[Rfam]
RNA sequence: GUUGUCGGAUUCACCUCAAUCCACAUGUUUUGGAGUAGAUUAGGGUGGAAUUUAGUUCAAGUUCCACUCCAAUUCACCCCAAUACAUGUGGAUUGAUGCGAAUCCAACU
Numbered sequence: 001g002u003u004g005u006c007g008g009a010u011u012c013a014c015c016u017c018a019a020u021c022c023a024c025a026u027g028u029u030u031u032g033g034a035g036u037a038g039a040u041u042a043g044g045g046u047g048g049a050a051u052u053u054a055g056u057u058c059a060a061g062u063u064c065c066a067c068u069c070c071a072a073u074u075c076a077c078c079c080c081a082a083u084a085c086a087u088g089u090g091g092a093u094u095g096a097u098g099c100g101a102a103u104c105c106a107a108c109u
Stems, first nucleotide, its partner, number of pairs: 004108002007105006014098001016096013030082003035077002038074004043069001045067003

A member of the RNA family "MIR5565 microRNA precursor family" from Sorghum bicolor, 109 nucleotides long.